[Rfam]
RNA sequence: GCGAAACGGGUAAGUCCCAUACGACCAGCUCCUGUUGAACUCCCCCAGGGCUUGACCGCAGCAAGGGUAGACGGUUGUAGCGGUGCGAUAUGGAUCGCUUACCCACCC
Numbered sequence: 001g002c003g004a005a006a007c008g009g010g011u012a013a014g015u016c017c018c019a020u021a022c023g024a025c026c027a028g029c030u031c032c033u034g035u036u037g038a039a040c041u042c043c044c045c046c047a048g049g050g051c052u053u054g055a056c057c058g059c060a061g062c063a064a065g066g067g068u069a070g071a072c073g074g075u076u077g078u079a080g081c082g083g084u085g086c087g088a089u090a091u092g093g094a095u096c097g098c099u100u101a102c103c104c105a106c107c108c
Stems, first nucleotide, its partner, number of pairs: 008104008017093005022087002024084002
Source information:
Bacteroidales small SRP: a 108-nucleotide RNA sequence from Breznakibacter xylanolyticus. For this family Rfam cites "A high-resolution transcriptome map identifies small RNA regulation of metabolism in the gut microbe Bacteroides thetaiotaomicron" (Ryan et al., Nat Commun, 2020). The family's RNA type in Rfam is non-coding RNA gene.